Rfam assigns this 159-nucleotide RNA sequence from [Clostridium] leptum to the family "Ribosomal protein L10 leader". The family's consensus secondary structure was predicted with CMfinder. For this family Rfam cites "Specific interactions of the L10(L12)4 ribosomal protein complex with mRNA, rRNA, and L11" (Iben and Draper, Biochemistry, 2008). By type it is a cis-regulatory leader.
RNA sequence: AAUAUUUGCUGAUCUUUUCCAAAGACAGCAGGUGCUUAUUGCGUAAAGAGCUUAUUGUUCUGCCUGCCGAGGAAGGUGACUUGCAAAGCCUGCAUUUUUCUGUGUAUGGUACUUUCAGGCCCUUUCCGGUAUGCGGAAAGGGCCUUUUUACAUCUCAUU
Numbered sequence: 001a002a003u004a005u006u007u008g009c010u011g012a013u014c015u016u017u018u019c020c021a022a023a024g025a026c027a028g029c030a031g032g033u034g035c036u037u038a039u040u041g042c043g044u045a046a047a048g049a050g051c052u053u054a055u056u057g058u059u060c061u062g063c064c065u066g067c068c069g070a071g072g073a074a075g076g077u078g079a080c081u082u083g084c085a086a087a088g089c090c091u092g093c094a095u096u097u098u099u100c101u102g103u104g105u106a107u108g109g110u111a112c113u114u115u116c117a118g119g120c121c122c123u124u125u126c127c128g129g130u131a132u133g134c135g136g137a138a139a140g141g142g143c144c145u146u147u148u149u150a151c152a153u154c155u156c157a158u159u
Stems, first nucleotide, its partner, number of pairs: 028067006034042002118144010